[Rfam]
RNA sequence: AUGUAAGAUGGGAUAUUUAUGUCGUUUAAUUGAAAACAUGCGUGAUUUGAUUAUAUCAUCGCGUCUGUUUUUGUGCAAUACCAAAAGAACCUGGAUGUUAUUACCAGGUUCUUUUUUCU
Numbered sequence: 001a002u003g004u005a006a007g008a009u010g011g012g013a014u015a016u017u018u019a020u021g022u023c024g025u026u027u028a029a030u031u032g033a034a035a036a037c038a039u040g041c042g043u044g045a046u047u048u049g050a051u052u053a054u055a056u057c058a059u060c061g062c063g064u065c066u067g068u069u070u071u072u073g074u075g076c077a078a079u080a081c082c083a084a085a086a087g088a089a090c091c092u093g094g095a096u097g098u099u100a101u102u103a104c105c106a107g108g109u110u111c112u113u114u115u116u117u118c119u
Base pairs, nucleotide, nucleotide: 032072033071034070035069036068037067038064039063040062041061042060083115084114085113086112087111088110089109090108091107092106093105094104